Rfam assigns this 81-nucleotide RNA sequence from Novosphingobium sp. Rr 2-17 to the family "ZMP/ZTP riboswitch aptamer (pfl RNA motif)". The organism belongs to Novosphingobium, within Bacteria.
RNA sequence: CGUCGUCCGCGUGACUGGCGAAUGAGAUGGGCGACCAUCGGGGAGCGUGGACGUGUAUGGCCGCUCGCCUGGGCAUCUGUC
Numbered sequence: 001c002g003u004c005g006u007c008c009g010c011g012u013g014a015c016u017g018g019c020g021a022a023u024g025a026g027a028u029g030g031g032c033g034a035c036c037a038u039c040g041g042g043g044a045g046c047g048u049g050g051a052c053g054u055g056u057a058u059g060g061c062c063g064c065u066c067g068c069c070u071g072g073g074c075a076u077c078u079g080u081c
Stems, first nucleotide, its partner, number of pairs: 004053009015042002017069005027038004060074003